[Rfam]
RNA sequence: UCCCAUUGAGGAAGCAAACCCAAAAGAGAUAAAGUGCAGUAUGACACUCUUAAACACAUCAGUUUG
Numbered sequence: 001u002c003c004c005a006u007u008g009a010g011g012a013a014g015c016a017a018a019c020c021c022a023a024a025a026g027a028g029a030u031a032a033a034g035u036g037c038a039g040u041a042u043g044a045c046a047c048u049c050u051u052a053a054a055c056a057c058a059u060c061a062g063u064u065u066g
Stems, first nucleotide, its partner, number of pairs: 014060001031051002033048004
The family of this 66-nucleotide sequence from Papaver nudicaule is "Small nucleolar RNA U49". The source organism's lineage runs through Eukaryota, Streptophyta, Tracheophyta, Euphyllophyta and Papaver. The family has 5 seed sequences and 340 matches in Rfam 15.1. A reference for the family is Brown et al. (2001), "Multiple snoRNA gene clusters from Arabidopsis", RNA. Its family is annotated with nucleolus and RNA processing in the Gene Ontology.